[Rfam]
RNA sequence: GCUGGUCCCCUGUGGUGGAAUCCCGAUCCGAUCCGGAUCGGUGCUCUUCGACUGGUGACCAGC
Numbered sequence: 001g002c003u004g005g006u007c008c009c010c011u012g013u014g015g016u017g018g019a020a021u022c023c024c025g026a027u028c029c030g031a032u033c034c035g036g037a038u039c040g041g042u043g044c045u046c047u048u049c050g051a052c053u054g055g056u057g058a059c060c061a062g063c
Stems, first nucleotide, its partner, number of pairs: 001063007009055002012052002017047003021043001023041007
The record is a 63-nucleotide sequence from Microbacterium invictum, which matches "Actino-pnp RNA" in Rfam.
The family's RNA type in Rfam is cis-regulatory element.
The match comes from Rfam's covariance-model search (50 bits).
The source organism's lineage runs through Bacteria, Bacillati, Micrococcales, Microbacteriaceae and Microbacterium.